RNA: Small nucleolar RNA SNORA48
RNA sequence: CCUCCCCGUCACUGGGUAAAGAGGCACCUGUUUGGUGGUGAUAGUCUUAGAUCAGGCGGGGGCAGAGCAGCCCAGUCCCUGUUCAUUCCAGCCCGAUGCCUGGGAAGUGGCCGCAGCUGGUUCAUGCCUCGGACACACGU
Numbered sequence: 001c002c003u004c005c006c007c008g009u010c011a012c013u014g015g016g017u018a019a020a021g022a023g024g025c026a027c028c029u030g031u032u033u034g035g036u037g038g039u040g041a042u043a044g045u046c047u048u049a050g051a052u053c054a055g056g057c058g059g060g061g062g063c064a065g066a067g068c069a070g071c072c073c074a075g076u077c078c079c080u081g082u083u084c085a086u087u088c089c090a091g092c093c094c095g096a097u098g099c100c101u102g103g104g105a106a107g108u109g110g111c112c113g114c115a116g117c118u119g120g121u122u123c124a125u126g127c128c129u130c131g132g133a134c135a136c137a138c139g140u
Stems, first nucleotide, its partner, number of pairs: 003062006012055004019048003023042001025040004080135005095128001097126001101124003107118001
Dot-bracket structure: ..((((((...((((...(((.(.((((........)))).)...)))...)))).)))))).................(((((..........(.(...(((...(..........)...))).).)..))))).....